Annotation:
A member of the RNA family "epsC RNA" from Metabacillus lacus, 114 nucleotides long. The organism belongs to Metabacillus, within Bacteria. Rfam 15.1 lists 450 matches to the family in 334 species.

[Rfam]
RNA sequence: UGGCAAUGUCUCCUCGCCAUUAUCAAUGGAGGCACUCGGUUAUGCUGUGGGCAAGAUAUCUUGCCUUAGACGCGUGUUGUCGCUGGUAUGGCGUGAGGAUGGGUUAAAUGCCCA
Numbered sequence: 001u002g003g004c005a006a007u008g009u010c011u012c013c014u015c016g017c018c019a020u021u022a023u024c025a026a027u028g029g030a031g032g033c034a035c036u037c038g039g040u041u042a043u044g045c046u047g048u049g050g051g052c053a054a055g056a057u058a059u060c061u062u063g064c065c066u067u068a069g070a071c072g073c074g075u076g077u078u079g080u081c082g083c084u085g086g087u088a089u090g091g092c093g094u095g096a097g098g099a100u101g102g103g104u105u106a107a108a109u110g111c112c113c114a
Stems, first nucleotide, its partner, number of pairs: 001019004007034007035097004039092008049066007069081004100114005